Bacterial RNase P class A: a 408-nucleotide RNA from Paenibacillus antri. From the family's description: Ribonuclease P (RNase P) is a ubiquitous endoribonuclease, found in archaea, bacteria and eukarya as well as chloroplasts and mitochondria. Its best characterised activity is the generation of mature 5'-ends of tRNAs by cleaving the 5'-leader elements of precursor-tRNAs. The organism belongs to Paenibacillus, within Bacteria. A search with the family's covariance model found it, with a score of 279 bits. Pairs were carried over by alignment from the consensus structure, which is taken from published work. By type it is a ribozyme.
RNA sequence: GAAGUUUGACAGACAAUCGCCGGCGGGGCAACCCGCGGGAGGAAAGUCCGGGCUCCAUAGGGCAGGGUGCUGGAUAACGUCCAGUCGUCGCGAGACGAAGGAUAGUGCCACAGAAACGGACCGCCGAUGGCUUUCGCGAGAAAGCACAGGCAAGGGUGGAACCGUGGUGUAAGAGACCACGAGGAGGCAUGGCGACAUGUCUGCUGGUAAACCCCACCUGGAGCAAGACCUAAGAGGAACGCGGCAGCUUCGCGCUGCGACCCUUGCCCGGGGUGCGUUCGGGUUGGUCGCUGGAGCGGCGCAGCAAUGCGUCGCCUAGAUAGAUGAUUGUCGCUUCAACGGUGGGAGGGCAGGUGACCCGUUACGACCACUGGAAGCACAGAACCCGGCUUACGGCAAACUUCUCUU
Numbered sequence: 001g002a003a004g005u006u007u008g009a010c011a012g013a014c015a016a017u018c019g020c021c022g023g024c025g026g027g028g029c030a031a032c033c034c035g036c037g038g039g040a041g042g043a044a045a046g047u048c049c050g051g052g053c054u055c056c057a058u059a060g061g062g063c064a065g066g067g068u069g070c071u072g073g074a075u076a077a078c079g080u081c082c083a084g085u086c087g088u089c090g091c092g093a094g095a096c097g098a099a100g101g102a103u104a105g106u107g108c109c110a111c112a113g114a115a116a117c118g119g120a121c122c123g124c125c126g127a128u129g130g131c132u133u134u135c136g137c138g139a140g141a142a143a144g145c146a147c148a149g150g151c152a153a154g155g156g157u158g159g160a161a162c163c164g165u166g167g168u169g170u171a172a173g174a175g176a177c178c179a180c181g182a183g184g185a186g187g188c189a190u191g192g193c194g195a196c197a198u199g200u201c202u203g204c205u206g207g208u209a210a211a212c213c214c215c216a217c218c219u220g221g222a223g224c225a226a227g228a229c230c231u232a233a234g235a236g237g238a239a240c241g242c243g244g245c246a247g248c249u250u251c252g253c254g255c256u257g258c259g260a261c262c263c264u265u266g267c268c269c270g271g272g273g274u275g276c277g278u279u280c281g282g283g284u285u286g287g288u289c290g291c292u293g294g295a296g297c298g299g300c301g302c303a304g305c306a307a308u309g310c311g312u313c314g315c316c317u318a319g320a321u322a323g324a325u326g327a328u329u330g331u332c333g334c335u336u337c338a339a340c341g342g343u344g345g346g347a348g349g350g351c352a353g354g355u356g357a358c359c360c361g362u363u364a365c366g367a368c369c370a371c372u373g374g375a376a377g378c379a380c381a382g383a384a385c386c387c388g389g390c391u392u393a394c395g396g397c398a399a400a401c402u403u404c405u406c407u408u
Stems, first nucleotide, its partner, number of pairs: 001404008010395001012332007020039002023036005044392003048389005053223004060269004065219005070084005085099001086097004100214002105212002107208003121155002123151003128146002163181006183204001185202007227289004237280006260274005296315008